[Rfam]
RNA sequence: GAGAGAGAAGCUGGCAAGAUGUUGGCAUAGCUGUUGAGUUCUGGGUCCUGCUAUGCUUUCAUAUUGCCAGCUUUUGCUUCC
Numbered sequence: 001g002a003g004a005g006a007g008a009a010g011c012u013g014g015c016a017a018g019a020u021g022u023u024g025g026c027a028u029a030g031c032u033g034u035u036g037a038g039u040u041c042u043g044g045g046u047c048c049u050g051c052u053a054u055g056c057u058u059u060c061a062u063a064u065u066g067c068c069a070g071c072u073u074u075u076g077c078u079u080c081c
Base pairs, nucleotide, nucleotide: 006075007074008073009072010071011070012069013068014067015066016065017064019062020061021060024057025056026055027054028053029052030051031050
RNA: mir-31 microRNA precursor family